[Rfam]
RNA sequence: AAUCUUGUACCUUGUAAGUCGCUUUGGAUAAAAGCGUCUGCCAAAUGCCCUAAA
Numbered sequence: 001a002a003u004c005u006u007g008u009a010c011c012u013u014g015u016a017a018g019u020c021g022c023u024u025u026g027g028a029u030a031a032a033a034g035c036g037u038c039u040g041c042c043a044a045a046u047g048c049c050c051u052a053a054a
Base pairs, nucleotide, nucleotide: 013043014041015040016039020036021035022034023033024032025031
RNA: UnaL2 LINE 3' element
Organism: Muraenolepis orangiensis